[Rfam]
RNA sequence: AAAAUUGUCAUCUUCAGCUGCCAGCAGCGCAUUGAUAAAGUCCUGGGGGAUGUCGGCGAACUUUAUUGGUGCCCGACGCAUCUCGCCAAACUCUGCUAUCAGUUUCUGAUCGCUGCUGAAAACCUUCAGGGGCAUCUGCAGUUUGACCGUCCUCAGGGACUCUACUGAGGGAAGGCUGGGGCUCAGAUAAAGGUAGGCACCGCUUAAACUGAGCAAUAGCCCGCAAAACAGGGCAACAAAAGACCACCAAAGGAACUUUAAAAGGCGUAUCAAGAUGGUUGGAUUUCCAGAUAA
Numbered sequence: 001a002a003a004a005u006u007g008u009c010a011u012c013u014u015c016a017g018c019u020g021c022c023a024g025c026a027g028c029g030c031a032u033u034g035a036u037a038a039a040g041u042c043c044u045g046g047g048g049g050a051u052g053u054c055g056g057c058g059a060a061c062u063u064u065a066u067u068g069g070u071g072c073c074c075g076a077c078g079c080a081u082c083u084c085g086c087c088a089a090a091c092u093c094u095g096c097u098a099u100c101a102g103u104u105u106c107u108g109a110u111c112g113c114u115g116c117u118g119a120a121a122a123c124c125u126u127c128a129g130g131g132g133c134a135u136c137u138g139c140a141g142u143u144u145g146a147c148c149g150u151c152c153u154c155a156g157g158g159a160c161u162c163u164a165c166u167g168a169g170g171g172a173a174g175g176c177u178g179g180g181g182c183u184c185a186g187a188u189a190a191a192g193g194u195a196g197g198c199a200c201c202g203c204u205u206a207a208a209c210u211g212a213g214c215a216a217u218a219g220c221c222c223g224c225a226a227a228a229c230a231g232g233g234c235a236a237c238a239a240a241a242g243a244c245c246a247c248c249a250a251a252g253g254a255a256c257u258u259u260a261a262a263a264g265g266c267g268u269a270u271c272a273a274g275a276u277g278g279u280u281g282g283a284u285u286u287c288c289a290g291a292u293a294a
Stems, first nucleotide, its partner, number of pairs: 011171007020162001025045003029041002047084006054078002057075002062069001086095001103158002105155001108148001110146003115142004120137001122135001124132003176290006183283002186280002197268002200265002204260001206258002217235001221232002244253002